[Rfam]
RNA: Selenocysteine transfer RNA
RNA sequence: GCCCAGUUGAACCUCGGUGGUCCGGGGUGCAGACUUCAAAUCUGUAUAAGGCUUCAUCGCCUGUGUGGUUCGAUUCCAUCUGCUGGGC
Numbered sequence: 001g002c003c004c005a006g007u008u009g010a011a012c013c014u015c016g017g018u019g020g021u022c023c024g025g026g027g028u029g030c031a032g033a034c035u036u037c038a039a040a041u042c043u044g045u046a047u048a049a050g051g052c053u054u055c056a057u058c059g060c061c062u063g064u065g066u067g068g069u070u071c072g073a074u075u076c077c078a079u080c081u082g083c084u085g086g087g088c
Stems, first nucleotide, its partner, number of pairs: 001088007009080001012027006028046006049062004065079004